Group II catalytic intron D1-D4-3: a 168-nucleotide RNA sequence. From the family's description: Group II introns are found in rRNA, tRNA and mRNA of organelles in fungi, plants and protists, and also in mRNA in bacteria.
[Rfam]
RNA sequence: GUCAUUGCAAGGUGGCCGCGCGAAAGGGCGGAGGCAAACACUUGGCCGCAGGAAUACGAACGAGCAGUGAGGCAGGAAGUCGCGGGCGAGCGUGCGAGUAAACGCAAAGCCCAAAGCCAUCGAACGGCUUUCUGUAGAGCUCGGCGGCGUGAGUGGAAGGACCGGGCG
Numbered sequence: 001g002u003c004a005u006u007g008c009a010a011g012g013u014g015g016c017c018g019c020g021c022g023a024a025a026g027g028g029c030g031g032a033g034g035c036a037a038a039c040a041c042u043u044g045g046c047c048g049c050a051g052g053a054a055u056a057c058g059a060a061c062g063a064g065c066a067g068u069g070a071g072g073c074a075g076g077a078a079g080u081c082g083c084g085g086g087c088g089a090g091c092g093u094g095c096g097a098g099u100a101a102a103c104g105c106a107a108a109g110c111c112c113a114a115a116g117c118c119a120u121c122g123a124a125c126g127g128c129u130u131u132c133u134g135u136a137g138a139g140c141u142c143g144g145c146g147g148c149g150u151g152a153g154u155g156g157a158a159g160g161a162c163c164g165g166g167c168g
Stems, first nucleotide, its partner, number of pairs: 001016006027167001029165001035160001039155006045148005061143005072135003076131007084112004090105004